[Rfam]
RNA: Small nucleolar RNA R38
Organism: Brassica rapa
RNA sequence: GAAUGUGUAUGAGGAGAAACAAAAAUCAAAAUACAGUUAUCCCUGGCUUAGGCUUCUUAAGCCGUUGAUGAAUCUUUUGUAAUCUGACCACAUCA
Number, nucleotide and partner (000 for none) at each position: 001g000002a000003a093004u092005g091006u090007g089008u000009a000010u000011g000012a000013g000014g000015a000016g000017a000018a000019a000020c000021a000022a000023a000024a000025a000026u000027c000028a000029a000030a000031a000032u000033a000034c000035a000036g000037u000038u000039a000040u000041c000042c000043c000044u000045g000046g000047c000048u000049u000050a000051g000052g000053c000054u000055u000056c000057u000058u000059a000060a000061g000062c000063c000064g000065u000066u000067g000068a000069u000070g000071a000072a000073u000074c000075u000076u000077u000078u000079g000080u000081a000082a000083u000084c000085u000086g000087a000088c000089c007090a006091c005092a004093u003094c000095a000